Rfam assigns this 109-nucleotide sequence from Peribacillus psychrosaccharolyticus to the family "SAM riboswitch aptamer (S box leader)". Pairs were carried over by alignment from the consensus structure, which is taken from published work.
RNA sequence: GUCUUAUCAAGAGAGGUGGAGGGAACUGGCCCUAUGAAACCCGGCAGCCGCUGACAUAAUGUCAGAAUGGUGCCAAUUCCAGCGGAGCAUAUGCUCUGAAAGAUAAGUG
Dot-bracket structure: ..((((((....(.(((...(((..[[[[)))......))))((((.((.(((.........)))...))))))...(]]]]((((((....))))))..)))))))..
Numbered sequence: 001g002u003c004u005u006a007u008c009a010a011g012a013g014a015g016g017u018g019g020a021g022g023g024a025a026c027u028g029g030c031c032c033u034a035u036g037a038a039a040c041c042c043g044g045c046a047g048c049c050g051c052u053g054a055c056a057u058a059a060u061g062u063c064a065g066a067a068u069g070g071u072g073c074c075a076a077u078u079c080c081a082g083c084g085g086a087g088c089a090u091a092u093g094c095u096c097u098g099a100a101a102g103a104u105a106a107g108u109g
Stems, first nucleotide, its partner, number of pairs: 003107006013042001015041003021032003026082004043074004048070002051065003078101001083098006